[Rfam]
RNA: pemK RNA
RNA sequence: AUAAUGAUACUUCCGCCCAGUCACAGCCCCGAAAGGGAUCACGCAAUGAGGGCGGCCGGCAGAGAUCCUGCCCGAGGUGAGAGGCCUAUGG
Number, nucleotide and partner (000 for none) at each position: 001a000002u000003a000004a000005u000006g000007a000008u000009a000010c000011u000012u088013c055014c054015g053016c052017c051018c050019a000020g000021u000022c000023a000024c000025a000026g000027c000028c000029c000030c000031g000032a000033a000034a000035g000036g000037g000038a000039u000040c000041a000042c000043g000044c000045a000046a000047u000048g000049a000050g018051g017052g016053c015054g014055g013056c074057c000058g072059g000060c070061a069062g068063a000064g000065a000066u000067c000068c062069u061070g060071c000072c058073c000074g056075a087076g086077g085078u000079g000080a000081g000082a000083g000084g000085c077086c076087u075088a012089u000090g000091g000